RNA sequence: CCGCCUCGUCAUUGGGGAGUAGCCUCCUUUCACUGAAAAGGGUCUGUAUCAACAUAAUUGACCGCACGGUCAUGGUGCAGACAACGCCGGUUUGGCAAGACCUUUGACCAUAUGCCUUCGGUACCGCCGGGAGGGUGUGUGGUCAUUGGAAAACGCCCGGCUGUGGAGUUC
Numbered sequence: 001c002c003g004c005c006u007c008g009u010c011a012u013u014g015g016g017g018a019g020u021a022g023c024c025u026c027c028u029u030u031c032a033c034u035g036a037a038a039a040g041g042g043u044c045u046g047u048a049u050c051a052a053c054a055u056a057a058u059u060g061a062c063c064g065c066a067c068g069g070u071c072a073u074g075g076u077g078c079a080g081a082c083a084a085c086g087c088c089g090g091u092u093u094g095g096c097a098a099g100a101c102c103u104u105u106g107a108c109c110a111u112a113u114g115c116c117u118u119c120g121g122u123a124c125c126g127c128c129g130g131g132a133g134g135g136u137g138u139g140u141g142g143u144c145a146u147u148g149g150a151a152a153a154c155g156c157c158c159g160g161c162u163g164u165g166g167a168g169u170u171c
Stems, first nucleotide, its partner, number of pairs: 027040003042082010059072005083170003087166003

This 171-nucleotide RNA sequence from Thiothrix caldifontis belongs to the Rfam family "Manganese Mn2+ riboswitch aptamer (yybP-ykoY)". Gene Ontology term of the family: manganese ion binding. For this family Rfam cites "Novel small RNA-encoding genes in the intergenic regions of Escherichia coli" (Argaman et al., Curr Biol, 2001). The family has 29 seed sequences and 1,126 matches in Rfam 15.1. Pairs were carried over by alignment from the consensus structure. A search with the family's covariance model found it, with a score of 91 bits.